[Rfam]
RNA sequence: CUGCAGGCUGUUCAGCGAGGCUGAGUCUCCUGUGACUCUGUCCUUUCCUUUAUGUCUGCUAGAUAGACAUGGAGUGGUUUGAGACCCUGUUGUCUACUAAAUACAGCGUGGUUAUAGAAACUCCAGAUAAAC
Numbered sequence: 001c002u003g004c005a006g007g008c009u010g011u012u013c014a015g016c017g018a019g020g021c022u023g024a025g026u027c028u029c030c031u032g033u034g035a036c037u038c039u040g041u042c043c044u045u046u047c048c049u050u051u052a053u054g055u056c057u058g059c060u061a062g063a064u065a066g067a068c069a070u071g072g073a074g075u076g077g078u079u080u081g082a083g084a085c086c087c088u089g090u091u092g093u094c095u096a097c098u099a100a101a102u103a104c105a106g107c108g109u110g111g112u113u114a115u116a117g118a119a120a121c122u123c124c125a126g127a128u129a130a131a132c
Base pairs, nucleotide, nucleotide: 003059004058005057006056007055008054018044019043020042023038024037025036026035027034070125071124072123073122074121085111086110088108089107090106092104093103

Shown here is a 132-nucleotide sequence, a member of the family "Small nucleolar RNA SNORA9". The family's consensus secondary structure was predicted with PFOLD. About the family: ACA9 is a member of the H/ACA class of snoRNA that guide the sites of modification of uridines to pseudouridines.